A member of the RNA family "Pseudomon-Rho RNA" from Pseudomonas fulva, 109 nucleotides long. Rfam classes the family as a cis-regulatory element.

RNA sequence: UUCGGGCCUGUCGCUUUUCCUAAGCGACCCCCUGCACGCCGCUGCCGACGCAUUCCUAAUCGAACUUUCGACAAUAAAGCGGGCGCCUGUCGCCUCUCCGCGGUGCGGC
Numbered sequence: 001u002u003c004g005g006g007c008c009u010g011u012c013g014c015u016u017u018u019c020c021u022a023a024g025c026g027a028c029c030c031c032c033u034g035c036a037c038g039c040c041g042c043u044g045c046c047g048a049c050g051c052a053u054u055c056c057u058a059a060u061c062g063a064a065c066u067u068u069c070g071a072c073a074a075u076a077a078a079g080c081g082g083g084c085g086c087c088u089g090u091c092g093c094c095u096c097u098c099c100g101c102g103g104u105g106c107g108g109c
Base pairs, nucleotide, nucleotide: 010028011027012026013025014024015023038109039108040107041106043105044104045103046102047101071090072089
Dot-bracket structure: .........((((((.......)))))).........((((.(((((.......................((................))..........)))))))))